[Rfam]
RNA: Small nucleolar RNA SNORD63
RNA sequence: GUGCAAUGAUGCAUUAUAAACACAUCAUUCUGAAAACAGAUGUGUAGAGAAGGUAGUAACUGAGCACA
Numbered sequence: 001g002u003g004c005a006a007u008g009a010u011g012c013a014u015u016a017u018a019a020a021c022a023c024a025u026c027a028u029u030c031u032g033a034a035a036a037c038a039g040a041u042g043u044g045u046a047g048a049g050a051a052g053g054u055a056g057u058a059a060c061u062g063a064g065c066a067c068a
Base pairs, nucleotide, nucleotide: 001067002066003065004064